[Rfam]
RNA sequence: AAUGGAGUAGGAAUCGGUGCGUUAAGUGUCGUCGAGACGGAGAGUUGUUCGACGAACGAAUGCCUAGCAGCGAUAUCGGUUCCGCAUCUCGCCGUU
Numbered sequence: 001a002a003u004g005g006a007g008u009a010g011g012a013a014u015c016g017g018u019g020c021g022u023u024a025a026g027u028g029u030c031g032u033c034g035a036g037a038c039g040g041a042g043a044g045u046u047g048u049u050c051g052a053c054g055a056a057c058g059a060a061u062g063c064c065u066a067g068c069a070g071c072g073a074u075a076u077c078g079g080u081u082c083c084g085c086a087u088c089u090c091g092c093c094g095u096u
Base pairs, nucleotide, nucleotide: 001096002095003094004093005092010083011082012081013080014079015078016077017076018075019074020072021071022070026057027056029055030054031053032052033051034050035049036048040089042087044085061069062068063067